[Rfam]
RNA sequence: CCUCCCGUCAUUGGGGAGUAGUCGCCCUGUUCACUCAGGGGCAUGCGUCAACAUACUUGGCCUUUCGGCCAUGGCGCUUGCAGCUUCACGCCUGGCAAGACCUAUGACCACAUCGCCUCCGCUUGGGCCGGGGAUGCGUGUGGUCAUUGGUAUCCGUGCCGGCCCUGGAGA
Numbered sequence: 001c002c003u004c005c006c007g008u009c010a011u012u013g014g015g016g017a018g019u020a021g022u023c024g025c026c027c028u029g030u031u032c033a034c035u036c037a038g039g040g041g042c043a044u045g046c047g048u049c050a051a052c053a054u055a056c057u058u059g060g061c062c063u064u065u066c067g068g069c070c071a072u073g074g075c076g077c078u079u080g081c082a083g084c085u086u087c088a089c090g091c092c093u094g095g096c097a098a099g100a101c102c103u104a105u106g107a108c109c110a111c112a113u114c115g116c117c118u119c120c121g122c123u124u125g126g127g128c129c130g131g132g133g134a135u136g137c138g139u140g141u142g143g144u145c146a147u148u149g150g151u152a153u154c155c156g157u158g159c160c161g162g163c164c165c166u167g168g169a170g171a
Stems, first nucleotide, its partner, number of pairs: 026039003041081003045077006058071005084170005
A member of the RNA family "Manganese Mn2+ riboswitch aptamer (yybP-ykoY)" from Aquabacterium sp., 171 nucleotides long. This RNA was originally discovered in E. coli during a large scale screen and was named SraF. The family was later found to exist upstream of related families of protein genes in many bacteria, including the the yybP and ykoK genes in B. subtilis. The specific functions of these proteins are unknown, but this structured RNA element may be involved in their genetic regulation as a riboswitch. Lineage of the source: Bacteria > Pseudomonadota > Betaproteobacteria > Burkholderiales > Aquabacterium.